[Rfam]
RNA sequence: UGACGGGGGCCCGCACAAGCGGUGGAGCAUGUGGUUUAAUUCGAUGAUACGCGAGGAACCUUACCAAGGCUUAAAUGCAAUUUGACAGAUCUAGAAAUAGAUUUUUCUUCGGACAGACUGCAAGGUGCUGCAUGGCUGUCGUCAGCUCGUGCCGUGAGGUGUUAGGUUAAGUCCUGCAACGAGCGCAACCCCUAUCAUUAGUUGCCAGCGUUUAAAGACGGGGACUCUAAUGAGACUGCCGGUGCAAACCGCGAGGAAGGUGGGGACGACGUCAAGUCAUCACGGCCCUUACGUCUUGGGCUACACACGUGCUACAAUGGUAAGUACAGAGGGCAGCUACUUGGCAACAAGAUGCGAAUCUCAAAAACUUAUCUCAGUUCGGAUUGGAGUCUGCAACUCGACUCUAUGAAGCUGGAAUCGCUAGUAAUCGCAUAUCAGCCAUGAUGCGGUGAAUACGUUCCCGGGCCUUGUACACACCGCCCGUCAAGCCAUGGAAGCUGGGGGUACCUGAAGUCGGUGACCGUAACAGGAGCUGCCUAGGGUAAAACUGGUAACUAGGGCUAAGUCGUAACAAGGUAGCCGUACCGGAAGGUGCGGCUG
Numbered sequence: 001u002g003a004c005g006g007g008g009g010c011c012c013g014c015a016c017a018a019g020c021g022g023u024g025g026a027g028c029a030u031g032u033g034g035u036u037u038a039a040u041u042c043g044a045u046g047a048u049a050c051g052c053g054a055g056g057a058a059c060c061u062u063a064c065c066a067a068g069g070c071u072u073a074a075a076u077g078c079a080a081u082u083u084g085a086c087a088g089a090u091c092u093a094g095a096a097a098u099a100g101a102u103u104u105u106u107c108u109u110c111g112g113a114c115a116g117a118c119u120g121c122a123a124g125g126u127g128c129u130g131c132a133u134g135g136c137u138g139u140c141g142u143c144a145g146c147u148c149g150u151g152c153c154g155u156g157a158g159g160u161g162u163u164a165g166g167u168u169a170a171g172u173c174c175u176g177c178a179a180c181g182a183g184c185g186c187a188a189c190c191c192c193u194a195u196c197a198u199u200a201g202u203u204g205c206c207a208g209c210g211u212u213u214a215a216a217g218a219c220g221g222g223g224a225c226u227c228u229a230a231u232g233a234g235a236c237u238g239c240c241g242g243u244g245c246a247a248a249c250c251g252c253g254a255g256g257a258a259g260g261u262g263g264g265g266a267c268g269a270c271g272u273c274a275a276g277u278c279a280u281c282a283c284g285g286c287c288c289u290u291a292c293g294u295c296u297u298g299g300g301c302u303a304c305a306c307a308c309g310u311g312c313u314a315c316a317a318u319g320g321u322a323a324g325u326a327c328a329g330a331g332g333g334c335a336g337c338u339a340c341u342u343g344g345c346a347a348c349a350a351g352a353u354g355c356g357a358a359u360c361u362c363a364a365a366a367a368c369u370u371a372u373c374u375c376a377g378u379u380c381g382g383a384u385u386g387g388a389g390u391c392u393g394c395a396a397c398u399c400g401a402c403u404c405u406a407u408g409a410a411g412c413u414g415g416a417a418u419c420g421c422u423a424g425u426a427a428u429c430g431c432a433u434a435u436c437a438g439c440c441a442u443g444a445u446g447c448g449g450u451g452a453a454u455a456c457g458u459u460c461c462c463g464g465g466c467c468u469u470g471u472a473c474a475c476a477c478c479g480c481c482c483g484u485c486a487a488g489c490c491a492u493g494g495a496a497g498c499u500g501g502g503g504g505u506a507c508c509u510g511a512a513g514u515c516g517g518u519g520a521c522c523g524u525a526a527c528a529g530g531a532g533c534u535g536c537c538u539a540g541g542g543u544a545a546a547a548c549u550g551g552u553a554a555c556u557a558g559g560g561c562u563a564a565g566u567c568g569u570a571a572c573a574a575g576g577u578a579g580c581c582g583u584a585c586c587g588g589a590a591g592g593u594g595c596g597g598c599u600g
Base pairs, nucleotide, nucleotide: 001474002473003471004470005469007468008467009466010465011464012463013462015458016457019421020420021419022418023417024315026313027312028311029310030309031308032307033306034304035303040055041054042053043052064299065298066297067296068295069294070293076122077121078120081117082116083115084114087104088103089102090101091100092099093098106113107112124288125287127286128285129284130283133282134281135277136276137275138273140271141270145184146183147182148181149180150179151160152159153158163176164175165174166173190265191264192263193262195233196232197231198230199229200228201227205222206221209220210219211218236256237255239253240251241250242249243248319373320372321371322370323369324368325367331362332361333360336355337354341350342349343348380411385406386405387404388403389402390401391400427450428449429448430447431446432445433444477575479572482568483567487562488561489560490559492557493556494555497552498551499550500549501548505544506543507542508541513537515535516534517533518532521530522529577600578599579598580597581596582595583594584593585592586591
This 600-nucleotide part of an RNA from Empedobacter falsenii belongs to the Rfam family "Bacterial small subunit ribosomal RNA". It scores 1532 bits against the family's covariance model.